[Rfam]
About this RNA
The record is a 174-nucleotide RNA from Limosilactobacillus gastricus, which matches "Lysine riboswitch aptamer" in Rfam. The family's consensus secondary structure is taken from published work. About the family: Riboswitches are metabolite binding domains within certain messenger RNAs that serve as precision sensors for their corresponding targets. Taxonomically the source falls in Limosilactobacillus gastricus (Bacteria, Bacilli, Lactobacillaceae, Limosilactobacillus).

RNA sequence: UAAACAGACAGAGGCGCAGUCAACAAGAGUACCUAUUCAGAGUCGCCAAACUAUGAAGAAUAGGGAAAGGGGCGAUUGCCGAAGCGUUGAGAUUGGCACUUUCAAUUUGCUGGGGCGUGAUUUAAGAGAUCACGGACUGUCGUAAGGGAAUCCUUACGUUGCGCUAUCGUUGAC
Numbered sequence: 001u002a003a004a005c006a007g008a009c010a011g012a013g014g015c016g017c018a019g020u021c022a023a024c025a026a027g028a029g030u031a032c033c034u035a036u037u038c039a040g041a042g043u044c045g046c047c048a049a050a051c052u053a054u055g056a057a058g059a060a061u062a063g064g065g066a067a068a069g070g071g072g073c074g075a076u077u078g079c080c081g082a083a084g085c086g087u088u089g090a091g092a093u094u095g096g097c098a099c100u101u102u103c104a105a106u107u108u109g110c111u112g113g114g115g116c117g118u119g120a121u122u123u124a125a126g127a128g129a130u131c132a133c134g135g136a137c138u139g140u141c142g143u144a145a146g147g148g149a150a151u152c153c154u155u156a157c158g159u160u161g162c163g164c165u166a167u168c169g170u171u172g173a174c
Stems, first nucleotide, its partner, number of pairs: 007168002010165002016079006024071001032064007083111003086106007112138002116134007141158006